[Rfam]
Record summary
Shown here is a 62-nucleotide sequence from Rosa chinensis, a member of the family "Small nucleolar RNA snoR60". Rfam 15.1 lists 1,133 matches to the family in 227 species. The family's consensus secondary structure was predicted with PFOLD. By type it is a C/D-box small nucleolar RNA. Gene Ontology terms of the family: RNA processing and nucleolus. The source organism's lineage runs through Eukaryota, Streptophyta, Rosales, Rosoideae and Rosa.

RNA sequence: AGGUAUGUGACGAGUUACUCAGAUAAGACCUUUGGGUGAUGCAAAACCGAGUCUCUGAUGCU
Numbered sequence: 001a002g003g004u005a006u007g008u009g010a011c012g013a014g015u016u017a018c019u020c021a022g023a024u025a026a027g028a029c030c031u032u033u034g035g036g037u038g039a040u041g042c043a044a045a046a047c048c049g050a051g052u053c054u055c056u057g058a059u060g061c062u
Stems, first nucleotide, its partner, number of pairs: 002062004
Dot-bracket structure: .((((.....................................................))))